[Rfam]
Shown here is a 77-nucleotide sequence from Nasonia vitripennis, a member of the family "mir-929 microRNA precursor family". On this family, see Weaver et al., Genome Biol 2007: "Computational and transcriptional evidence for microRNAs in the honey bee genome". It is one of the family's seed sequences. NCBI's taxonomy places the organism under Eukaryota, Protostomia, Panarthropoda, Pancrustacea, Nasonia.
RNA sequence: UGGGGUCAAAUUGACUCUAGUAGGGAGUCCCUGCAUUCAAUAUGGCGACUUCCUAACAGAGUCAGGCUGACUCCUUU
Numbered sequence: 001u002g003g004g005g006u007c008a009a010a011u012u013g014a015c016u017c018u019a020g021u022a023g024g025g026a027g028u029c030c031c032u033g034c035a036u037u038c039a040a041u042a043u044g045g046c047g048a049c050u051u052c053c054u055a056a057c058a059g060a061g062u063c064a065g066g067c068u069g070a071c072u073c074c075u076u077u
Base pairs, nucleotide, nucleotide: 011065012064013063014062015061016060017059018058021055022054023053024052025051026050027049028048029047